Background:
The family of this 360-nucleotide part of an RNA from Halosimplex carlsbadense is "Archaeal large subunit ribosomal RNA". The organism belongs to Halosimplex, within Archaea. It is one of the family's seed sequences. For this family Rfam cites "The comparative RNA web (CRW) site: an online database of comparative sequence and structure information for ribosomal, intron, and other RNAs" (Cannone et al., BMC Bioinformatics, 2002). The family is grouped with related families in Rfam's "LSU clan".
RNA sequence: CGGGAACAACCGACGUUAGGGAAUUCGGCAAUCUAGUCCCGUACCUUCGGAAGAAGGGAUGCCUGCCUCGGGAAGAGGCAGGUCGCAGUGACUUGGAGGGCUCCGACUGUCUAGUAACAACAUAGGUGACCGCAAAUCCGCAAGGACUCGUACGGUCACUGAAUCCUGCCCAGUGCGGGUAUCUGAACACUCAGUACAAUGAGACGAAGGACCCGUUAACGGCGGGGGUAACUAUGACCCUCUUAAGGUAGCGUAGUACCUUGUCGCUUCAGUAGCGACUCGCAUGAAUGGAUUAACGAGAGCCUCGCUGUCCCAACGUUGGGCCCGGUGAACUGUACGUUCCAGUGCGGAGUCUGGAGA
Dot-bracket structure: ((((.....((((((((.(((..............(((((....(....).....)))))(((((((((.....)))))))))(...).......(((.((((((..(((.........)))..(((((((((...(((....)))...)..))))))))..((((.(((..(((((((..(((.....((((......)))).....))))))))..)))))((((((.......))))))(...)...............((((((.....))))))..........))))...)).)))))))....))).)))))))).)))).............(((((........)))))..